[Rfam]
Shown here is a 68-nucleotide sequence from Prauserella flavalba, a member of the family "ASdes TB sRNA". Lineage of the source: Bacteria > Actinomycetes > Pseudonocardiales > Pseudonocardiaceae > Prauserella. The family has 26 seed sequences and 1,192 matches in Rfam 15.1.
RNA sequence: AGCUCGACCGGAUCGACGGCCCGGGUCACCAGCAGGUAGUCGCGGAUGCCGAUGCUGUGGCGGCUCUC
Numbered sequence: 001a002g003c004u005c006g007a008c009c010g011g012a013u014c015g016a017c018g019g020c021c022c023g024g025g026u027c028a029c030c031a032g033c034a035g036g037u038a039g040u041c042g043c044g045g046a047u048g049c050c051g052a053u054g055c056u057g058u059g060g061c062g063g064c065u066c067u068c
Base pairs, nucleotide, nucleotide: 004063005062006061008059011030013028015027016026017025035056036055037054038053040052041051042050